Rfam assigns this 180-nucleotide sequence from Endozoicomonas elysicola to the family "6S / SsrS RNA". The literature on the family includes a 2000 paper in Cell by Wassarman and Storz, "6S RNA regulates E. coli RNA polymerase activity".

RNA sequence: ACCUCCCUGGCCUGUUCGCCAGUCACCAUACGUCCCGAGCCGAUAAUACUACCCAGGGGGCUCCUGGCAGGUGCUGGAGUGCAGGUCCGCCUCGUAGCGGAAAGCCCGAUUCACCUCAGCAGCCCCCACCGUGACCGUUACGGCCACGGGCAAACGUGACAGCGGCAGGGUGGGGAGGUU
Numbered sequence: 001a002c003c004u005c006c007c008u009g010g011c012c013u014g015u016u017c018g019c020c021a022g023u024c025a026c027c028a029u030a031c032g033u034c035c036c037g038a039g040c041c042g043a044u045a046a047u048a049c050u051a052c053c054c055a056g057g058g059g060g061c062u063c064c065u066g067g068c069a070g071g072u073g074c075u076g077g078a079g080u081g082c083a084g085g086u087c088c089g090c091c092u093c094g095u096a097g098c099g100g101a102a103a104g105c106c107c108g109a110u111u112c113a114c115c116u117c118a119g120c121a122g123c124c125c126c127c128a129c130c131g132u133g134a135c136c137g138u139u140a141c142g143g144c145c146a147c148g149g150g151c152a153a154a155c156g157u158g159a160c161a162g163c164g165g166c167a168g169g170g171u172g173g174g175g176a177g178g179u180u
Stems, first nucleotide, its partner, number of pairs: 002178008011169005017164003032151004037147001039145001040143002056127003060123003064119002067117001069116005081105002086101005
Source information: E. coli 6S RNA was the first non coding RNA to be sequenced, but its function was unknown until recently. It consists of 184 nucleotides that fold into an extended hairpin structure with a large single-stranded internal bulge. The 6S RNA specifically associates with RNA polymerase holoenzyme containing the sigma70 specificity factor.